mir-399 microRNA precursor family: a 105-nucleotide sequence from Hevea brasiliensis. Rfam 15.1 lists 2,396 matches to the family in 221 species. A reference for the family is Jones-Rhoades and Bartel (2004), "Computational Identification of Plant MicroRNAs and Their Targets, Including a Stress-Induced miRNA", Mol Cell. About the family: mir-399 was identified in both Arabidopsis thaliana and Oryza sativa computationally and was later experimentally verified. mir-399 is thought to target mRNAs coding for a phosphatase transporter.

[Rfam]
RNA sequence: GGAUGCAUUGCUGGGCAAUUACCACUUUGGCAGUUGGCUACUUCAAUCAACUUACAAAAAAGAGGUGAGCUCACUGCCAAAGGAGAUUUGCCCGGCAACUCAACU
Numbered sequence: 001g002g003a004u005g006c007a008u009u010g011c012u013g014g015g016c017a018a019u020u021a022c023c024a025c026u027u028u029g030g031c032a033g034u035u036g037g038c039u040a041c042u043u044c045a046a047u048c049a050a051c052u053u054a055c056a057a058a059a060a061a062g063a064g065g066u067g068a069g070c071u072c073a074c075u076g077c078c079a080a081a082g083g084a085g086a087u088u089u090g091c092c093c094g095g096c097a098a099c100u101c102a103a104c105u
Stems, first nucleotide, its partner, number of pairs: 005101001008098002011095008022085001025082001028079007036071004